[Rfam]
RNA: permuted transfer-messenger RNA
Organism: Rickettsia endosymbiont of Culicoides newsteadi
RNA sequence: GGUAAUAAACGUGAUUUAGAAUAGAGGUUGCGGACCCGGGGGCGGUACCCGGCGCUUCCACCAGAAAGUUGUGGUAUAUUUGUGAACAAUGCUUUAUGGGGGCGAAAUAGGAUCGACGUGCUUAAUAAAAAAAUUAUUUUUACUCGGUAUAAUUCCGCCGGACCUUGUGUCAUUGGGUUAAAAAAAGAAACGCAAAUGAUAAUGAACGUUUCGUAGGAAAUCAAGCACUAGCUGCUUAA
Numbered sequence: 001g002g003u004a005a006u007a008a009a010c011g012u013g014a015u016u017u018a019g020a021a022u023a024g025a026g027g028u029u030g031c032g033g034a035c036c037c038g039g040g041g042g043c044g045g046u047a048c049c050c051g052g053c054g055c056u057u058c059c060a061c062c063a064g065a066a067a068g069u070u071g072u073g074g075u076a077u078a079u080u081u082g083u084g085a086a087c088a089a090u091g092c093u094u095u096a097u098g099g100g101g102g103c104g105a106a107a108u109a110g111g112a113u114c115g116a117c118g119u120g121c122u123u124a125a126u127a128a129a130a131a132a133a134u135u136a137u138u139u140u141u142a143c144u145c146g147g148u149a150u151a152a153u154u155c156c157g158c159c160g161g162a163c164c165u166u167g168u169g170u171c172a173u174u175g176g177g178u179u180a181a182a183a184a185a186a187g188a189a190a191c192g193c194a195a196a197u198g199a200u201a202a203u204g205a206a207c208g209u210u211u212c213g214u215a216g217g218a219a220a221u222c223a224a225g226c227a228c229u230a231g232c233u234g235c236u237u238a239a
Stems, first nucleotide, its partner, number of pairs: 001144005014134004026122003030119003036052005053104007145160004